[Rfam]
Shown here is a 127-nucleotide RNA from Mesocricetus auratus, a member of the family "Small Cajal body specific RNA 4". From the family's description: scaRNAs are a specific class of small nuclear RNAs which localise to the Cajal bodies and guide the modification of RNA polymerase II transcribed spliceosomal RNAs U1, U2, U4, U5 and U12. The family's RNA type in Rfam is small Cajal body RNA. On this family, see Darzacq et al., EMBO J 2002: "Cajal body-specific small nuclear RNAs: a novel class of 2'-O-methylation and pseudouridylation guide RNAs". The organism belongs to Mesocricetus, within Eukaryota.
RNA sequence: GCUGGAGGACCAAGAAGGCUGAGUCUGAUGAAGCAAGACUUUGCUGAUACACUCCUCCUAGACAUGGGGGUAGAGAGCAGCAGCCCUUACAGGAGAAAGCCAGAGCUGGCUGUACUACCCAACAUUU
Numbered sequence: 001g002c003u004g005g006a007g008g009a010c011c012a013a014g015a016a017g018g019c020u021g022a023g024u025c026u027g028a029u030g031a032a033g034c035a036a037g038a039c040u041u042u043g044c045u046g047a048u049a050c051a052c053u054c055c056u057c058c059u060a061g062a063c064a065u066g067g068g069g070g071u072a073g074a075g076a077g078c079a080g081c082a083g084c085c086c087u088u089a090c091a092g093g094a095g096a097a098a099g100c101c102a103g104a105g106c107u108g109g110c111u112g113u114a115c116u117a118c119c120c121a122a123c124a125u126u127u
Base pairs, nucleotide, nucleotide: 002061003060004058005057006056007055008054009053017045018044019043021041022040023039024038025037026036068120069119070118071117079111080110081108082107083106084105086103087102092101093100